[Rfam]
RNA sequence: UUUAAGUGUAAGAGUUUUCAUAUCCAACUUUGAUCGUCCGUCUUAUUUGAAUUUUUUUAUAAUUAGUAUUUUGUUUGUUAUGAGAUGAUAAAACAUGAAUACUAUUUUACUCGUAACUUAUGUUUUUAUUUUUUUUAAAUAAGACUAACAAUCAAAGUUGGACGCGGAAAAUCAUGACUGCACUUAAA
Numbered sequence: 001u002u003u004a005a006g007u008g009u010a011a012g013a014g015u016u017u018u019c020a021u022a023u024c025c026a027a028c029u030u031u032g033a034u035c036g037u038c039c040g041u042c043u044u045a046u047u048u049g050a051a052u053u054u055u056u057u058u059a060u061a062a063u064u065a066g067u068a069u070u071u072u073g074u075u076u077g078u079u080a081u082g083a084g085a086u087g088a089u090a091a092a093a094c095a096u097g098a099a100u101a102c103u104a105u106u107u108u109a110c111u112c113g114u115a116a117c118u119u120a121u122g123u124u125u126u127u128a129u130u131u132u133u134u135u136u137a138a139a140u141a142a143g144a145c146u147a148a149c150a151a152u153c154a155a156a157g158u159u160g161g162a163c164g165c166g167g168a169a170a171a172u173c174a175u176g177a178c179u180g181c182a183c184u185u186a187a188a
Base pairs, nucleotide, nucleotide: 023162024161025160026159027158028157029156030155031154032153033152034151036149037148040145041144042143043142044141045140046139
The family of this 188-nucleotide RNA sequence from Oryza sativa is "MIR812 microRNA precursor family". Taxonomically the source falls in Oryza sativa (Eukaryota, Embryophyta, Liliopsida, Oryzinae). Rfam links the family to the GO terms miRNA-mediated post-transcriptional gene silencing and RISC complex.